[Rfam]
RNA sequence: GAGACACCCCAAUGGAGUAGGACUUGUUUCAAUGGGGCUUUGGUGCUCAUUGAGUCUGCCCCUUGAGUGUGUCGCU
Numbered sequence: 001g002a003g004a005c006a007c008c009c010c011a012a013u014g015g016a017g018u019a020g021g022a023c024u025u026g027u028u029u030c031a032a033u034g035g036g037g038c039u040u041u042g043g044u045g046c047u048c049a050u051u052g053a054g055u056c057u058g059c060c061c062c063u064u065g066a067g068u069g070u071g072u073c074g075c076u
Stems, first nucleotide, its partner, number of pairs: 001075001003073005009067001012064001014062002017059003021056003029053008037044002